RNA: mir-2944 microRNA precursor family
Organism: Dolichomitus sp. PSUC_FEM 10030005
RNA sequence: GGUUGCAGAAUCCGAAGGAACUCUUGCAGUGAUGUGUUGUCUUUAUACUCUCAUAUCACAGCAGUAGUUACCUGGGAUAUUGCGAUC
Numbered sequence: 001g002g003u004u005g006c007a008g009a010a011u012c013c014g015a016a017g018g019a020a021c022u023c024u025u026g027c028a029g030u031g032a033u034g035u036g037u038u039g040u041c042u043u044u045a046u047a048c049u050c051u052c053a054u055a056u057c058a059c060a061g062c063a064g065u066a067g068u069u070a071c072c073u074g075g076g077a078u079a080u081u082g083c084g085a086u087c
Stems, first nucleotide, its partner, number of pairs: 003085006010078002016073003019069004024064003029059008